[Rfam]
Shown here is a 144-nucleotide sequence from Desulfosarcina widdelii, a member of the family "Group II catalytic intron D1-D4-4".

Nucleotides: 144
Base pairs, nucleotide, nucleotide: 020044021043022042023041024040052092053091054090055089056088057083058082059081060080061079062078067074068073104117105116106115107114121137122136
Number, partner (000 for none) and nucleotide at each position: 001000c002000a003000g004000c005000g006000g007000g008000u009000g010000c011000a012000a013000g014000u015000c016000c017000c018000g019000u020044c021043c022042g023041g024040g025000a026000a027000a028000u029000u030000g031000u032000c033000g034000g035000u036000a037000c038000a039000u040024c041023c042022c043021g044020g045000u046000a047000g048000c049000u050000a051000c052092c053091c054090a055089g056088a057083c058082a059081g060080c061079g062078g063000g064000u065000u066000g067074g068073a069000g070000a071000g072000a073068u074067c075000c076000g077000c078062c079061u080060g081059c082058u083057g084000g085000a086000g087000c088056u089055c090054u091053g092052g093000g094000g095000a096000c097000a098000g099000a100000u101000g102000u103000a104117a105116g106115c107114c108000g109000c110000a111000a112000g113000g114107g115106g116105c117104u118000g119000c120000a121137g122136c123000a124000a125000c126000c127000u128000g129000g130000c131000a132000g133000g134000c135000c136122g137121u138000a139000a140000c141000g142000c143000g144000a
Description: Rfam links the family to the GO term Group II intron splicing. The base pairs follow the family's consensus structure. Rfam describes the family as follows. Group II introns are found in rRNA, tRNA and mRNA of organelles in fungi, plants and protists, and also in mRNA in bacteria.